[Rfam]
RNA sequence: CGACGGCGCGAGGUUCUGACACGCGGCCUUACCGCGGCCGCCGGGGCCGCGUCGAGCCACUGGCGAGACCGACGUUGUCGUGA
Numbered sequence: 001c002g003a004c005g006g007c008g009c010g011a012g013g014u015u016c017u018g019a020c021a022c023g024c025g026g027c028c029u030u031a032c033c034g035c036g037g038c039c040g041c042c043g044g045g046g047c048c049g050c051g052u053c054g055a056g057c058c059a060c061u062g063g064c065g066a067g068a069c070c071g072a073c074g075u076u077g078u079c080g081u082g083a
Base pairs, nucleotide, nucleotide: 003081004080005079006078007077008075009074010073012058013057014056021052022051023050024049025048026047027046028045036070037069039065040064041063042062
c-di-GMP-II-GAG riboswitch aptamer: an 83-nucleotide RNA sequence. The sequence is in the family's curated seed alignment. The family is grouped with related families in Rfam's "c-di-GMP_II riboswitch clan". Gene Ontology terms of the family: regulation of gene expression and cyclic-di-GMP binding.